[Rfam]
RNA sequence: AAAUAUAGAUAACACUCAGCUGUUCUGAUGGUGGCAGUUGUGGCAUUCCUCUGUGGGAAAGGAAUUGUUACACAGUUAAACACCUCUUUCUUAGCAAAGCAGAAAGUAGGCAUGUGUGUGACCGACACAG
Numbered sequence: 001a002a003a004u005a006u007a008g009a010u011a012a013c014a015c016u017c018a019g020c021u022g023u024u025c026u027g028a029u030g031g032u033g034g035c036a037g038u039u040g041u042g043g044c045a046u047u048c049c050u051c052u053g054u055g056g057g058a059a060a061g062g063a064a065u066u067g068u069u070a071c072a073c074a075g076u077u078a079a080a081c082a083c084c085u086c087u088u089u090c091u092u093a094g095c096a097a098a099g100c101a102g103a104a105a106g107u108a109g110g111c112a113u114g115u116g117u118g119u120g121a122c123c124g125a126c127a128c129a130g
Base pairs, nucleotide, nucleotide: 015042017040018039019038020037021036022035070119071118072117073116074115083110084109085108086106087105088104089103090102091101